Rfam assigns this 74-nucleotide RNA from Alligator sinensis to the family "Mammalian CPEB3 ribozyme". The match comes from Rfam's covariance-model search (55 bits). Pairs were carried over by alignment from the consensus structure, which is taken from published work.
RNA sequence: CAAGAAUUAGAGGCCACAGCAGAAGUGCUCACAGCACGGCCAUAUCAGAUUUCAAUGAAUCUGCGAAUUUUGCA
Numbered sequence: 001c002a003a004g005a006a007u008u009a010g011a012g013g014c015c016a017c018a019g020c021a022g023a024a025g026u027g028c029u030c031a032c033a034g035c036a037c038g039g040c041c042a043u044a045u046c047a048g049a050u051u052u053c054a055a056u057g058a059a060u061c062u063g064c065g066a067a068u069u070u071u072g073c074a
Stems, first nucleotide, its partner, number of pairs: 012041004019073006025037003046063007